Shown here is an 81-nucleotide sequence from Lepisosteus oculatus, a member of the family "Small nucleolar RNA SNORD79".
The base pairs follow the family's consensus structure, which was predicted with PFOLD.
About the family: snoRNA U79 or Z22 is found in intron 7 of the gas5 gene in humans and is also present in mice.
The source organism's lineage runs through Eukaryota, Gnathostomata, Euteleostomi, Holostei and Lepisosteus.
RNA sequence: UACUGUUUAUGAUGAAUGGUUUUUUAAACAAUGGGAAUCUCUCUGAAAAAGAGUGAAAGAAACCUUUCUACUGAAACAGUG
Numbered sequence: 001u002a003c004u005g006u007u008u009a010u011g012a013u014g015a016a017u018g019g020u021u022u023u024u025u026a027a028a029c030a031a032u033g034g035g036a037a038u039c040u041c042u043c044u045g046a047a048a049a050a051g052a053g054u055g056a057a058a059g060a061a062a063c064c065u066u067u068c069u070a071c072u073g074a075a076a077c078a079g080u081g
Stems, first nucleotide, its partner, number of pairs: 001081007